[Rfam]
RNA sequence: CAGCAUAUAUGUAGACCUUGCCUGGCUCUUUAUAGCCAGCCAAGGGGGACAGUGUAUGCAAGAGUGAUGUGGAGUUCUUGUCAGCUCAAACCAGCUGAAUCAGUGGCUGGAUGAAUCGCAGGUCUCCAACAUUC
Numbered sequence: 001c002a003g004c005a006u007a008u009a010u011g012u013a014g015a016c017c018u019u020g021c022c023u024g025g026c027u028c029u030u031u032a033u034a035g036c037c038a039g040c041c042a043a044g045g046g047g048g049a050c051a052g053u054g055u056a057u058g059c060a061a062g063a064g065u066g067a068u069g070u071g072g073a074g075u076u077c078u079u080g081u082c083a084g085c086u087c088a089a090a091c092c093a094g095c096u097g098a099a100u101c102a103g104u105g106g107c108u109g110g111a112u113g114a115a116u117c118g119c120a121g122g123u124c125u126c127c128a129a130c131a132u133u134c
Base pairs, nucleotide, nucleotide: 003059004058005057006056007055008054016045017044018043019042020041022039023038024037071127072126073125074124079120080119081118091110092109093108094107095106